This 106-nucleotide sequence from Castanea mollissima belongs to the Rfam family "Small nucleolar RNA snoR8a". Gene Ontology terms of the family: nucleolus and RNA processing. By type it is a C/D-box small nucleolar RNA. NCBI's taxonomy places the organism under Eukaryota, Euphyllophyta, Magnoliopsida, Pentapetalae, Castanea.
RNA sequence: GAGGUGGCGAUGAUUAUAAAAAAAUUCCUCGUACUGAAUGCUCAAUUAUAUGAAAUUGGGUAUGAGUAUGACAGACUCUUAUUAACACCCAUAGAAUCUGAGCCCU
Numbered sequence: 001g002a003g004g005u006g007g008c009g010a011u012g013a014u015u016a017u018a019a020a021a022a023a024a025u026u027c028c029u030c031g032u033a034c035u036g037a038a039u040g041c042u043c044a045a046u047u048a049u050a051u052g053a054a055a056u057u058g059g060g061u062a063u064g065a066g067u068a069u070g071a072c073a074g075a076c077u078c079u080u081a082u083u084a085a086c087a088c089c090c091a092u093a094g095a096a097u098c099u100g101a102g103c104c105c106u
Stems, first nucleotide, its partner, number of pairs: 003106002006104002